[Rfam]
RNA sequence: CUCUAAUACAAAUUUUUCAGAUUAUAUAUUUUAAGGAAUAUAUACAGUAAAAGUAUUAGUAUUAAAGAAACCUAUUCCUUCCUAAGUAAAAGUAGGUAAAUAAGAAUCAGCAAUUUAUGUAUUAGUAGAAAUAUAUUUUGAAUAUAUGUAAAUUGC
Dot-bracket structure: ..(((((((....((.......(((((((((....)))))))))....))..))))))).....................((((........)))).............(((((((((((((.....((((....))))....)))))))))))))
RNA: RT-14 RNA